[Rfam]
RNA sequence: UACUUAUCCAGAAAGGCGGAGGGACUUGGCCCUGCGAUGCCUUAGCAACCAUCCUGUGUAAGCGGGAAAAGGUGCUAAUUCCGGCCCCGGUGUAAACCGUGGGAGAGAUAAGUU
Number, nucleotide and partner (000 for none) at each position: 001u000002a113003c112004u111005u110006a109007u108008c107009c000010a000011g000012a000013a043014a042015g041016g040017c039018g000019g000020a000021g032022g031023g030024a000025c000026u084027u083028g082029g081030c023031c022032c021033u000034g000035c000036g000037a000038u000039g017040c016041c015042u014043u013044a076045g075046c074047a073048a000049c072050c071051a000052u067053c066054c065055u000056g000057u000058g000059u000060a000061a000062g000063c000064g000065g054066g053067a052068a000069a000070a000071g050072g049073u047074g046075c045076u044077a000078a000079u000080u106081c029082c028083g027084g026085c103086c102087c101088c099089g098090g097091u000092g000093u000094a000095a000096a000097c090098c089099g088100u000101g087102g086103g085104a000105g000106a080107g008108a007109u006110a005111a004112g003113u002114u000
RNA: SAM riboswitch aptamer (S box leader)
Organism: Chitinophaga costaii